Rfam assigns this 88-nucleotide sequence from Cohnella sp. CIP 111063 to the family "c-di-GMP-I-GGC riboswitch aptamer". Pairs were carried over by alignment from the consensus structure, which is taken from published work.
RNA sequence: CUCGAUAACGGCAAACCUGUCGAAAGACAGCGACGCAAAGCUAGAGGGUCUUCCCUUCCGUCGGAAGGAUGACAGCCAGCUACCGAAG
Numbered sequence: 001c002u003c004g005a006u007a008a009c010g011g012c013a014a015a016c017c018u019g020u021c022g023a024a025a026g027a028c029a030g031c032g033a034c035g036c037a038a039a040g041c042u043a044g045a046g047g048g049u050c051u052u053c054c055c056u057u058c059c060g061u062c063g064g065a066a067g068g069a070u071g072a073c074a075g076c077c078a079g080c081u082a083c084c085g086a087a088g
Stems, first nucleotide, its partner, number of pairs: 001088001003085002011036002017030005034075001039081004046077002048073003
The source organism's lineage runs through Bacteria, Bacillati, Caryophanales, Paenibacillaceae and Cohnella.